Source information
Shown here is a 126-nucleotide RNA sequence from Ictidomys tridecemlineatus, a member of the family "Small nucleolar RNA SNORA44". The family is grouped with related families in Rfam's "SNORA44 clan".
RNA sequence: AAGUACAAGUCAGGAUGUGGUGAAUUGUGGCCAUGAAACUCCAACUACAUGCAUCAGCAACCUGGAAAGGCAUUGACAGCUCAGGCCAACACUUUACCUCAGUUUCUAUUUGGCUUUCCUUUAAAG
Numbered sequence: 001a002a003g004u005a006c007a008a009g010u011c012a013g014g015a016u017g018u019g020g021u022g023a024a025u026u027g028u029g030g031c032c033a034u035g036a037a038a039c040u041c042c043a044a045c046u047a048c049a050u051g052c053a054u055c056a057g058c059a060a061c062c063u064g065g066a067a068a069g070g071c072a073u074u075g076a077c078a079g080c081u082c083a084g085g086c087c088a089a090c091a092c093u094u095u096a097c098c099u100c101a102g103u104u105u106c107u108a109u110u111u112g113g114c115u116u117u118c119c120u121u122u123a124a125a126g
Stems, first nucleotide, its partner, number of pairs: 011035002013032002016029004064119006079106001083099003
ACA44 is a member of the H/ACA class of snoRNA that guide the sites of modification of uridines to pseudouridines. For this family Rfam cites "RNomics: an experimental approach that identifies 201 candidates for novel, small, non-messenger RNAs in mouse" (Huttenhofer et al., EMBO J, 2001). The family's consensus secondary structure was predicted with PFOLD. Gene Ontology terms of the family: RNA processing and nucleolus. A search with the family's covariance model found it, with a score of 65 bits.